Rfam assigns this 89-nucleotide sequence from Anolis carolinensis to the family "mir-5444 microRNA precursor family".
[Rfam]
RNA sequence: GCAUGCUUCUUUCAAGCUCUGUUAGCAUGAACUAGGCUUCAAGAUUCCAAAAGCCUAGUUCAUGUCAAGAGAGUGUGAAGAAAGCAAGA
Numbered sequence: 001g002c003a004u005g006c007u008u009c010u011u012u013c014a015a016g017c018u019c020u021g022u023u024a025g026c027a028u029g030a031a032c033u034a035g036g037c038u039u040c041a042a043g044a045u046u047c048c049a050a051a052a053g054c055c056u057a058g059u060u061c062a063u064g065u066c067a068a069g070a071g072a073g074u075g076u077g078a079a080g081a082a083a084g085c086a087a088g089a
Stems, first nucleotide, its partner, number of pairs: 004086005010080005016074005022068002025065015
The source organism's lineage runs through Eukaryota, Craniata, Lepidosauria, Unidentata and Anolis. The base pairs follow the family's consensus structure, which was predicted with RNAalifold.